[Rfam]
Shown here is a 295-nucleotide sequence from Endocarpon pusillum, a member of the family "Fungal signal recognition particle RNA". The match comes from Rfam's covariance-model search (139 bits). It is annotated as a non-coding RNA gene. The source organism's lineage runs through Eukaryota, Ascomycota, saccharomyceta, Endocarpon and Endocarpon pusillum. The base pairs follow the family's consensus structure, which is taken from published work.

RNA sequence: UGGCUGUCAUGGUCACAAACUUAAGAAGGCCCACUCCUACAACUUUGCAUCUGCCCUCUCCUCGCCCCUUGUGGUGAGCUUGGAUAUGCGUGCCUCAUCCGAAGUUGGGGGUCGUCCAUCGUACUCGUCUGGGCAACCGAUGAAUGCUACGGGGCGUUAAGCAAUGGAGAUGAUACUUGAGGGAAGCAAUUCUGCAGAGGCAUUUCCACCCUGAGCUGGCGGUGUGAGAUUACACCGGUCCGAGAUGUGGGCAGUUCGAGUUGGUUUGGUGGUGUCAACUUUUUGAUGAUUUUUU
Numbered sequence: 001u002g003g004c005u006g007u008c009a010u011g012g013u014c015a016c017a018a019a020c021u022u023a024a025g026a027a028g029g030c031c032c033a034c035u036c037c038u039a040c041a042a043c044u045u046u047g048c049a050u051c052u053g054c055c056c057u058c059u060c061c062u063c064g065c066c067c068c069u070u071g072u073g074g075u076g077a078g079c080u081u082g083g084a085u086a087u088g089c090g091u092g093c094c095u096c097a098u099c100c101g102a103a104g105u106u107g108g109g110g111g112u113c114g115u116c117c118a119u120c121g122u123a124c125u126c127g128u129c130u131g132g133g134c135a136a137c138c139g140a141u142g143a144a145u146g147c148u149a150c151g152g153g154g155c156g157u158u159a160a161g162c163a164a165u166g167g168a169g170a171u172g173a174u175a176c177u178u179g180a181g182g183g184a185a186g187c188a189a190u191u192c193u194g195c196a197g198a199g200g201c202a203u204u205u206c207c208a209c210c211c212u213g214a215g216c217u218g219g220c221g222g223u224g225u226g227a228g229a230u231u232a233c234a235c236c237g238g239u240c241c242g243a244g245a246u247g248u249g250g251g252c253a254g255u256u257c258g259a260g261u262u263g264g265u266u267u268g269g270u271g272g273u274g275u276c277a278a279c280u281u282u283u284u285g286a287u288g289a290u291u292u293u294u295u
Base pairs, nucleotide, nucleotide: 001015002014003013004012017293018292019291021289022288023287025282026281027280028279037269038268044260045259051254052253053252054251055250056249058247061078062077063076064075065074066073081242082241083240084239087237088236090235091234092233094228095227096226097225098224099222100221101220103217104216105215106214108212109211110210111209113156116154117153120151121150122149123148125143126142127141128140129139131138132137157161165208166207167206168205169204170203171202176199177198178197183192184191185190